[Rfam]
Rfam assigns this 583-nucleotide part of an RNA from Deinococcus ruber to the family "Bacterial large subunit ribosomal RNA".
RNA sequence: CCCGUAGCAGGACGAAAAGACCCCGUGGAGCUUUACUAUAGUCUGACAUUGGUUUUCGGGUCGCUCUGCGUAGGAUAGGUGGGAGUCUUUGAAGUCUGGCUCUUGGGCUGGAUGGAGACACCGGUGAAAUACCACCCUGAGCGAUUUGGAAGUCUAACCUGAAAAACCAAUUUCAGGAACAGUGUUUGAUGGGUAGUUUGACUGGGGCGGUCGCCUCCGAAACAGUAACGGAGGCGCCCAAAGGUUCCCUCAAGACGGUUGGAAAUCGUCUGCAGAGCGCAAAGGUACAAGGGAGCUUGACUGCGAGACGGACAUGUCGAGCAGGGAGGAAACUCGGGCUUAGUGAACCGGUGGUACCGUGUGGAAGGGCCAUCGAUCAACGGAUAAAAGUUACCCCGGGGAUAACAGGCUGAUUUCCCCCGAGAGUCCAUAUCGGCGGGGAAGUUUGGCACCUCGAUGUCGGCUCGUCGCAUCCUGGGGCUGAAGAAGGUCCCAAGGGUUGGGCUGUUCGCCCAUUAAAGCGGCACGCGAGCUGGGUUCAGAACGUCGUGAGACAGUUCGGUCUCUAUCCGCUACGGGCGUA
Numbered sequence: 001c002c003c004g005u006a007g008c009a010g011g012a013c014g015a016a017a018a019g020a021c022c023c024c025g026u027g028g029a030g031c032u033u034u035a036c037u038a039u040a041g042u043c044u045g046a047c048a049u050u051g052g053u054u055u056u057c058g059g060g061u062c063g064c065u066c067u068g069c070g071u072a073g074g075a076u077a078g079g080u081g082g083g084a085g086u087c088u089u090u091g092a093a094g095u096c097u098g099g100c101u102c103u104u105g106g107g108c109u110g111g112a113u114g115g116a117g118a119c120a121c122c123g124g125u126g127a128a129a130u131a132c133c134a135c136c137c138u139g140a141g142c143g144a145u146u147u148g149g150a151a152g153u154c155u156a157a158c159c160u161g162a163a164a165a166a167c168c169a170a171u172u173u174c175a176g177g178a179a180c181a182g183u184g185u186u187u188g189a190u191g192g193g194u195a196g197u198u199u200g201a202c203u204g205g206g207g208c209g210g211u212c213g214c215c216u217c218c219g220a221a222a223c224a225g226u227a228a229c230g231g232a233g234g235c236g237c238c239c240a241a242a243g244g245u246u247c248c249c250u251c252a253a254g255a256c257g258g259u260u261g262g263a264a265a266u267c268g269u270c271u272g273c274a275g276a277g278c279g280c281a282a283a284g285g286u287a288c289a290a291g292g293g294a295g296c297u298u299g300a301c302u303g304c305g306a307g308a309c310g311g312a313c314a315u316g317u318c319g320a321g322c323a324g325g326g327a328g329g330a331a332a333c334u335c336g337g338g339c340u341u342a343g344u345g346a347a348c349c350g351g352u353g354g355u356a357c358c359g360u361g362u363g364g365a366a367g368g369g370c371c372a373u374c375g376a377u378c379a380a381c382g383g384a385u386a387a388a389a390g391u392u393a394c395c396c397c398g399g400g401g402a403u404a405a406c407a408g409g410c411u412g413a414u415u416u417c418c419c420c421c422g423a424g425a426g427u428c429c430a431u432a433u434c435g436g437c438g439g440g441g442a443a444g445u446u447u448g449g450c451a452c453c454u455c456g457a458u459g460u461c462g463g464c465u466c467g468u469c470g471c472a473u474c475c476u477g478g479g480g481c482u483g484a485a486g487a488a489g490g491u492c493c494c495a496a497g498g499g500u501u502g503g504g505c506u507g508u509u510c511g512c513c514c515a516u517u518a519a520a521g522c523g524g525c526a527c528g529c530g531a532g533c534u535g536g537g538u539u540c541a542g543a544a545c546g547u548c549g550u551g552a553g554a555c556a557g558u559u560c561g562g563u564c565u566c567u568a569u570c571c572g573c574u575a576c577g578g579g580c581g582u583a
Stems, first nucleotide, its partner, number of pairs: 001579008010571003014566002022400004027396002029392005035197004042189002045186004051154016068137001078136005085119003094113008158177007200212004213235006236381001238338002244296006250276002253271006277286002301324004307318003326335003349375007357368002409450003413447001414444007424434002461536001462534004466528001467525005474499002477494006501515005542560004546555003

The source organism's lineage runs through Bacteria, Thermotogati, Deinococci, Deinococcaceae and Deinococcus.